[Rfam]
RNA sequence: AAUUAUGAUAGAGGUGCAGUUAUUAAGACUAAGCACACUAAGCGAUCCAGCUAUGAGGUGUGCCGAAAGGAAUGAUUGCCGAAGUAAAAGGCUGCGGUAUAAGGACUUUUACUGGUUGUGUAUUUAAUAUGUACAUAACUGUCACCUAGACGUUGGGUGGAGCACUAUCUCUUAA
Numbered sequence: 001a002a003u004u005a006u007g008a009u010a011g012a013g014g015u016g017c018a019g020u021u022a023u024u025a026a027g028a029c030u031a032a033g034c035a036c037a038c039u040a041a042g043c044g045a046u047c048c049a050g051c052u053a054u055g056a057g058g059u060g061u062g063c064c065g066a067a068a069g070g071a072a073u074g075a076u077u078g079c080c081g082a083a084g085u086a087a088a089a090g091g092c093u094g095c096g097g098u099a100u101a102a103g104g105a106c107u108u109u110u111a112c113u114g115g116u117u118g119u120g121u122a123u124u125u126a127a128u129a130u131g132u133a134c135a136u137a138a139c140u141g142u143c144a145c146c147u148a149g150a151c152g153u154u155g156g157g158u159g160g161a162g163c164a165c166u167a168u169c170u171c172u173u174a175a
Stems, first nucleotide, its partner, number of pairs: 007169005016079009033063007083113008092104002114140010142160007
RNA: Lysine riboswitch aptamer